[Rfam]
RNA: Glycine riboswitch aptamer
Organism: Acidisoma silvae
RNA sequence: AGGGCGCUAGCGGAAGAGCCCAUCCCGAAAGGGGUGGCACCGAAGGAGCAACCGCCCCGGAAACUCUCAGGUAAAUAGGACCGCUGCUGGUUU
Numbered sequence: 001a002g003g004g005c006g007c008u009a010g011c012g013g014a015a016g017a018g019c020c021c022a023u024c025c026c027g028a029a030a031g032g033g034g035u036g037g038c039a040c041c042g043a044a045g046g047a048g049c050a051a052c053c054g055c056c057c058c059g060g061a062a063a064c065u066c067u068c069a070g071g072u073a074a075a076u077a078g079g080a081c082c083g084c085u086g087c088u089g090g091u092u093u
Base pairs, nucleotide, nucleotide: 006088008086009085010084011083012082013081020037021036022035023034039072040071041070042068043067046066047065048064052060053059